[Rfam]
RNA: atpB RNA
RNA sequence: CUGUCCCGCGGUAGCAGAUGUGCGACGGAGUCCGCCGCGGAGGCAGUCUUCUUGAAGAAGUCCAUCGCACCGCAUUCCUUGUGGAUGCGGCCCGAGAACGGGAGAGAACGCUGAGCGUUACAAC
Numbered sequence: 001c002u003g004u005c006c007c008g009c010g011g012u013a014g015c016a017g018a019u020g021u022g023c024g025a026c027g028g029a030g031u032c033c034g035c036c037g038c039g040g041a042g043g044c045a046g047u048c049u050u051c052u053u054g055a056a057g058a059a060g061u062c063c064a065u066c067g068c069a070c071c072g073c074a075u076u077c078c079u080u081g082u083g084g085a086u087g088c089g090g091c092c093c094g095a096g097a098a099c100g101g102g103a104g105a106g107a108a109c110g111c112u113g114a115g116c117g118u119u120a121c122a123a124c
Base pairs, nucleotide, nucleotide: 001046002045003044004043005042006040007039008038009037010036011035070090071089072088073087074086075085076084077083